[Rfam]
RNA sequence: GGCUUGCGAUGAAGCGAAAGGUUGCCCAACCACUGAGGGUCCGGUUGGCUAUUUUUUUCAAGCUAACUGCGACACACCCGAGGGCGUUGUUGGGGGAAUUUUCGCGGAGAAGGUCCGUAAUCAAUCGGGCGACCA
Numbered sequence: 001g002g003c004u005u006g007c008g009a010u011g012a013a014g015c016g017a018a019a020g021g022u023u024g025c026c027c028a029a030c031c032a033c034u035g036a037g038g039g040u041c042c043g044g045u046u047g048g049c050u051a052u053u054u055u056u057u058u059c060a061a062g063c064u065a066a067c068u069g070c071g072a073c074a075c076a077c078c079c080g081a082g083g084g085c086g087u088u089g090u091u092g093g094g095g096g097a098a099u100u101u102u103c104g105c106g107g108a109g110a111a112g113g114u115c116c117g118u119a120a121u122c123a124a125u126c127g128g129g130c131g132a133c134c135a
Stems, first nucleotide, its partner, number of pairs: 014105003018102004025094005112134004117130002

The family of this 135-nucleotide RNA from Heliophilum fasciatum is "S10-Clostridia ribosomal protein leader".
By type it is a cis-regulatory leader.
The base pairs follow the family's consensus structure, which is taken from published work.